[Rfam]
RNA sequence: UGUCCAAUCAUGGGGCAAGGAUUAAGCCAGUAUCAGAUUUAUGUUAUGGGGCACAUCAUGAGGGAGGACGGAAAAAGGAAGGAGUGCACUCGCUAAAUCGCAAGGAAUUUGGAGACGCACCUUGGGAGCCUGCUGUGACCGAAAGUAAGUCAAUCUGUCCAAUCAUGGGGCAAGGAUUAAGCCAGCAUCAGAUUUAUGUUACGCAGUUGAGGGAGGCUCUCAAGACAAAAGGAGUAAAGGCUAAGACUGUGGAUUUACUUCAUUUCUUUGAUUUUGUGAAGGACAUUUGUCCUU
Numbered sequence: 001u002g003u004c005c006a007a008u009c010a011u012g013g014g015g016c017a018a019g020g021a022u023u024a025a026g027c028c029a030g031u032a033u034c035a036g037a038u039u040u041a042u043g044u045u046a047u048g049g050g051g052c053a054c055a056u057c058a059u060g061a062g063g064g065a066g067g068a069c070g071g072a073a074a075a076a077g078g079a080a081g082g083a084g085u086g087c088a089c090u091c092g093c094u095a096a097a098u099c100g101c102a103a104g105g106a107a108u109u110u111g112g113a114g115a116c117g118c119a120c121c122u123u124g125g126g127a128g129c130c131u132g133c134u135g136u137g138a139c140c141g142a143a144a145g146u147a148a149g150u151c152a153a154u155c156u157g158u159c160c161a162a163u164c165a166u167g168g169g170g171c172a173a174g175g176a177u178u179a180a181g182c183c184a185g186c187a188u189c190a191g192a193u194u195u196a197u198g199u200u201a202c203g204c205a206g207u208u209g210a211g212g213g214a215g216g217c218u219c220u221c222a223a224g225a226c227a228a229a230a231g232g233a234g235u236a237a238a239g240g241c242u243a244a245g246a247c248u249g250u251g252g253a254u255u256u257a258c259u260u261c262a263u264u265u266c267u268u269u270g271a272u273u274u275u276g277u278g279a280a281g282g283a284c285a286u287u288u289g290u291c292c293u294u
Base pairs, nucleotide, nucleotide: 003051004050005049011046012045056068057067059065104151105150109148110147116141117140121137123135124134125133158169159168160167161166179220181217182216183215229269230268231267232266233265234264238256239255240254242252279294280293281292282291283290284289